Shown here is a 425-nucleotide part of an RNA from Pythium oligandrum, a member of the family "Eukaryotic large subunit ribosomal RNA".
NCBI's taxonomy places the organism under Eukaryota, Sar, Pythiales, Pythiaceae, Pythium.
RNA sequence: GGACCUGAUAUCAGGUAAGACUACCCGCUGAACUUAAGCAUAUUAAUAAGCGGAGGAAAAGAAACUAACAAGGAUUCCCCUAGUAACGGCGAGUGAAGCGGGAUGAGCUCAAGCUUAAAAUCUCUGUGCCAGUUUGGCAUGGCGAAUUGUAGUCUAUGGAGGCGCUGUCAGUGCGAUUGCGUGGGUUAAGUUCCUUGGAAGAGGACAGCAUCGAGGGUGAUACUCCCGUGUAUGCCUGUGCAAUUGUGCGUACGACACGUUUUCUUUGAGUCGCGUUGUUUGGGAAUGCAGCGCAAAGUAGGUGGUAAAUUCCAUCUAAAGCUAAAUAUUGGUGCGAGACCGAUAGCGAACAAGUACCGUGAGGGAAAGAUGAAAAGAACUUUGAAAAGAGAGUUAAAGAGUACCUGAAACUGCUGAAAGGGAAU
Numbered sequence: 001g002g003a004c005c006u007g008a009u010a011u012c013a014g015g016u017a018a019g020a021c022u023a024c025c026c027g028c029u030g031a032a033c034u035u036a037a038g039c040a041u042a043u044u045a046a047u048a049a050g051c052g053g054a055g056g057a058a059a060a061g062a063a064a065c066u067a068a069c070a071a072g073g074a075u076u077c078c079c080c081u082a083g084u085a086a087c088g089g090c091g092a093g094u095g096a097a098g099c100g101g102g103a104u105g106a107g108c109u110c111a112a113g114c115u116u117a118a119a120a121u122c123u124c125u126g127u128g129c130c131a132g133u134u135u136g137g138c139a140u141g142g143c144g145a146a147u148u149g150u151a152g153u154c155u156a157u158g159g160a161g162g163c164g165c166u167g168u169c170a171g172u173g174c175g176a177u178u179g180c181g182u183g184g185g186u187u188a189a190g191u192u193c194c195u196u197g198g199a200a201g202a203g204g205a206c207a208g209c210a211u212c213g214a215g216g217g218u219g220a221u222a223c224u225c226c227c228g229u230g231u232a233u234g235c236c237u238g239u240g241c242a243a244u245u246g247u248g249c250g251u252a253c254g255a256c257a258c259g260u261u262u263u264c265u266u267u268g269a270g271u272c273g274c275g276u277u278g279u280u281u282g283g284g285a286a287u288g289c290a291g292c293g294c295a296a297a298g299u300a301g302g303u304g305g306u307a308a309a310u311u312c313c314a315u316c317u318a319a320a321g322c323u324a325a326a327u328a329u330u331g332g333u334g335c336g337a338g339a340c341c342g343a344u345a346g347c348g349a350a351c352a353a354g355u356a357c358c359g360u361g362a363g364g365g366a367a368a369g370a371u372g373a374a375a376a377g378a379a380c381u382u383u384g385a386a387a388a389g390a391g392a393g394u395u396a397a398a399g400a401g402u403a404c405c406u407g408a409a410a411c412u413g414c415u416g417a418a419a420g421g422g423a424a425u
Stems, first nucleotide, its partner, number of pairs: 024055001025053005035042002065072002076103004086094002106323004113153003118148002121145002124142006159264002161261004166257004171249007180240007190206001192205004209213001216226002273294007300317005357364002380391004